[Rfam]
Rfam assigns this 129-nucleotide sequence from Dendroctonus ponderosae to the family "Small nucleolar RNA psi28S-1192". psi28S-1192 is a member of the H/ACA class of snoRNA. This family is responsible for guiding the modification of uridine 1192 to pseudouridine in Drosophila 28S rRNA. Rfam classes the family as an H/ACA-box small nucleolar RNA. Gene Ontology terms of the family: nucleolus and RNA processing. The family has 15 seed sequences and 81 matches in Rfam 15.1. A search with the family's covariance model found it, with a score of 49 bits.
RNA sequence: CCAUAGUCCUUUCUAAUGCUGCAAAAUGAUUUCCUCGUUUUGGAGUUUCGCUUAAGGACUAAAUUAAUUCGAUUUUUACCACCAAUUUCCUUUGGCUGUAGGAAAUUGGUAAAAAAAAUUGGAACAAUU
Numbered sequence: 001c002c003a004u005a006g007u008c009c010u011u012u013c014u015a016a017u018g019c020u021g022c023a024a025a026a027u028g029a030u031u032u033c034c035u036c037g038u039u040u041u042g043g044a045g046u047u048u049c050g051c052u053u054a055a056g057g058a059c060u061a062a063a064u065u066a067a068u069u070c071g072a073u074u075u076u077u078a079c080c081a082c083c084a085a086u087u088u089c090c091u092u093u094g095g096c097u098g099u100a101g102g103a104a105a106u107u108g109g110u111a112a113a114a115a116a117a118a119u120u121g122g123a124a125c126a127a128u129u
Stems, first nucleotide, its partner, number of pairs: 005060006019045002022042005028035001069123001070121007081110006